The family of this 185-nucleotide RNA sequence from Paenibacillus cremeus is "c-di-AMP riboswitch aptamer (ydaO/yuaA leader)". A search with the family's covariance model found it, with a score of 96 bits.

RNA sequence: UUUCCAACUUCGCUGAGUUUCCGUUAAGGGAAACGGGGGAACCACAUCGCUCGUCAUGCUGUUUAGGUGACUGUGAUGUAUUUAAUGGGGUGAAUCCUGAAGGCAUGUUCUACAUGCUAACAGGUAGGGCGACUCUCAAGUCCGAAUCCGUCAGCUAACCUCGUAAGCGUCCAGAGAGAGGUAAA
Numbered sequence: 001u002u003u004c005c006a007a008c009u010u011c012g013c014u015g016a017g018u019u020u021c022c023g024u025u026a027a028g029g030g031a032a033a034c035g036g037g038g039g040a041a042c043c044a045c046a047u048c049g050c051u052c053g054u055c056a057u058g059c060u061g062u063u064u065a066g067g068u069g070a071c072u073g074u075g076a077u078g079u080a081u082u083u084a085a086u087g088g089g090g091u092g093a094a095u096c097c098u099g100a101a102g103g104c105a106u107g108u109u110c111u112a113c114a115u116g117c118u119a120a121c122a123g124g125u126a127g128g129g130c131g132a133c134u135c136u137c138a139a140g141u142c143c144g145a146a147u148c149c150g151u152c153a154g155c156u157a158a159c160c161u162c163g164u165a166a167g168c169g170u171c172c173a174g175a176g177a178g179a180g181g182u183a184a185a
Stems, first nucleotide, its partner, number of pairs: 011169004018032005033164006043087002088149003096124004127143004